[Rfam]
RNA sequence: CCCAGCGCUAUGCGCUGGGCUAACAUAUUGCACUCCUUCAGAGCU
Number, nucleotide and partner (000 for none) at each position: 001c019002c018003c017004a016005g015006c014007g013008c012009u000010a000011u000012g008013c007014g006015c005016u004017g003018g002019g001020c000021u000022a000023a000024c000025a000026u000027a000028u000029u000030g000031c000032a000033c043034u042035c041036c000037u000038u000039c000040a000041g035042a034043g033044c000045u000